[Rfam]
About this RNA:
mir-184 microRNA precursor family: a 79-nucleotide RNA sequence from Elysia chlorotica. The organism belongs to Elysia, within Eukaryota. The base pairs follow the family's consensus structure, which was predicted with PFOLD.
RNA sequence: GAGCCCACGUCUCCUCGUCAGUUUUCCAUCCCGUCUGAGCGGCGCACUGGACGGAGAACUGAUAAGGGCUUGUGGGUGA
Numbered sequence: 001g002a003g004c005c006c007a008c009g010u011c012u013c014c015u016c017g018u019c020a021g022u023u024u025u026c027c028a029u030c031c032c033g034u035c036u037g038a039g040c041g042g043c044g045c046a047c048u049g050g051a052c053g054g055a056g057a058a059c060u061g062a063u064a065a066g067g068g069c070u071u072g073u074g075g076g077u078g079a
Stems, first nucleotide, its partner, number of pairs: 012068004017063004022058006030050002